flg-Rhizobiales RNA: a 136-nucleotide sequence from Afipia carboxidovorans.
Nucleotides: 136
Base pairs, nucleotide, nucleotide: 002031003030004029005028006027007026008025010023011022012021013020014019036071037070038069039068041066047060048059049058050057051056088113089112090111091110092109094108095107096106097105
Number, partner (000 for none) and nucleotide at each position: 001000c002031g003030a004029a005028c006027c007026g008025u009000c010023c011022g012021c013020u014019u015000g016000g017000g018000a019014g020013a021012g022011c023010g024000a025008a026007c027006g028005g029004u030003u031002u032000a033000a034000c035000g036071g037070a038069c039068c040000a041066c042000c043000a044000u045000c046000g047060g048059c049058u050057u051056u052000g053000g054000g055000a056051g057050a058049g059048g060047c061000c062000g063000g064000u065000c066041g067000c068039g069038g070037u071036u072000u073000u074000g075000c076000a077000a078000g079000g080000g081000g082000a083000g084000a085000u086000c087000u088113g089112c090111g091110a092109u093000g094108g095107a096106g097105a098000a099000c100000a101000c102000g103000a104000g105097u106096c107095u108094c109092g110091u111090c112089g113088c114000g115000c116000u117000a118000u119000c120000g121000c122000g123000c124000c125000a126000g127000a128000u129000g130000a131000c132000g133000c134000u135000u136000g
A search with the family's covariance model found it, with a score of 101 bits. The base pairs follow the family's consensus structure, which is taken from published work. By type it is a cis-regulatory element.